[Rfam]
RNA sequence: GGAGGCGUACCUCGUCUGGUGACGGGCGCGGUCCUCAAAACCGUUGUGGCCGGGCACCCCGGCCAGGCGGGUUCGAUUCCCGUCCGCCUCC
Numbered sequence: 001g002g003a004g005g006c007g008u009a010c011c012u013c014g015u016c017u018g019g020u021g022a023c024g025g026g027c028g029c030g031g032u033c034c035u036c037a038a039a040a041c042c043g044u045u046g047u048g049g050c051c052g053g054g055c056a057c058c059c060c061g062g063c064c065a066g067g068c069g070g071g072u073u074c075g076a077u078u079c080c081c082g083u084c085c086g087c088c089u090c091c
Base pairs, nucleotide, nucleotide: 001091002090003089004088005087006086007085009083011026012025013024014023015022016021028044029043030042031041032040047065048064049063050062051061068082069081070080071079

Description: The record is a 91-nucleotide RNA sequence from Georgenia soli, which matches "Selenocysteine transfer RNA" in Rfam. A search with the family's covariance model found it, with a score of 80 bits. Its family is annotated with triplet codon-amino acid adaptor activity in the Gene Ontology. The organism belongs to Georgenia, within Bacteria. The base pairs follow the family's consensus structure, which is taken from published work.